[Rfam]
RNA sequence: UGAUGAAGGAGGCAUGGUUGGGUGCACGGAAAUUGAUCUUAUUGGGUCAACAUGUCUGCUCUCUCUGAUCACUCAUGAUUUGAGGGCCUGGUUACUACCCACAUUU
Numbered sequence: 001u002g003a004u005g006a007a008g009g010a011g012g013c014a015u016g017g018u019u020g021g022g023u024g025c026a027c028g029g030a031a032a033u034u035g036a037u038c039u040u041a042u043u044g045g046g047u048c049a050a051c052a053u054g055u056c057u058g059c060u061c062u063c064u065c066u067g068a069u070c071a072c073u074c075a076u077g078a079u080u081u082g083a084g085g086g087c088c089u090g091g092u093u094a095c096u097a098c099c100c101a102c103a104u105u106u
Stems, first nucleotide, its partner, number of pairs: 012025004044089005054079003058073001060071001
Small nucleolar RNA snoR100: a 106-nucleotide RNA from Lupinus albus. Rfam classes the family as an H/ACA-box small nucleolar RNA. The match comes from Rfam's covariance-model search (82 bits). The organism belongs to Lupinus, within Eukaryota. Gene Ontology terms of the family: nucleolus and RNA processing. The family's consensus secondary structure was predicted with WAR.